A member of the RNA family "Alphaproteobacteria transfer-messenger RNA" from Vineibacter terrae, 330 nucleotides long.
Clan: tRNA clan.
The base pairs follow the family's consensus structure, which is taken from published work.
RNA sequence: CGCCUUCAAAUCGGCGCCGUGGUCGCCUAUAUAGGUCAUGUCGGGAAACCGACUAUGGCGAUAAACGCUGCGUGGCAUAGGCGGAUCGGACCCGGGGGCGGUACCCGGCGCCUCCACCAGUUCACCGGCCCCGCUAUGCGGGGCUGGUUUACGGGGGCGAAACAGGAUCGACGGACGCAAUAAAGGCGCAGUUUUUGCUCGGCAUGGUACCGCCGUUACCGGGCCAAACCACAAGUGCCAACGAUAACGACGUUGCACUCGCUGCUGCCGCCUAAACAGCGGACGUAAGCGCGGUUCGGGAGGGCACCGGGCAACAGAAGCCCUCCCACU
Numbered sequence: 001c002g003c004c005u006u007c008a009a010a011u012c013g014g015c016g017c018c019g020u021g022g023u024c025g026c027c028u029a030u031a032u033a034g035g036u037c038a039u040g041u042c043g044g045g046a047a048a049c050c051g052a053c054u055a056u057g058g059c060g061a062u063a064a065a066c067g068c069u070g071c072g073u074g075g076c077a078u079a080g081g082c083g084g085a086u087c088g089g090a091c092c093c094g095g096g097g098g099c100g101g102u103a104c105c106c107g108g109c110g111c112c113u114c115c116a117c118c119a120g121u122u123c124a125c126c127g128g129c130c131c132c133g134c135u136a137u138g139c140g141g142g143g144c145u146g147g148u149u150u151a152c153g154g155g156g157g158c159g160a161a162a163c164a165g166g167a168u169c170g171a172c173g174g175a176c177g178c179a180a181u182a183a184a185g186g187c188g189c190a191g192u193u194u195u196u197g198c199u200c201g202g203c204a205u206g207g208u209a210c211c212g213c214c215g216u217u218a219c220c221g222g223g224c225c226a227a228a229c230c231a232c233a234a235g236u237g238c239c240a241a242c243g244a245u246a247a248c249g250a251c252g253u254u255g256c257a258c259u260c261g262c263u264g265c266u267g268c269c270g271c272c273u274a275a276a277c278a279g280c281g282g283a284c285g286u287a288a289g290c291g292c293g294g295u296u297c298g299g300g301a302g303g304g305c306a307c308c309g310g311g312c313a314a315c316a317g318a319a320g321c322c323c324u325c326c327c328a329c330u
Stems, first nucleotide, its partner, number of pairs: 040053005057199005067192007082177002086174003092108005109159007200215004205226003210222002292309004299326006
It is annotated as a non-coding RNA gene. The literature on the family includes a 2010 paper in RNA Biol by Mao et al., "Variations on the tmRNA gene".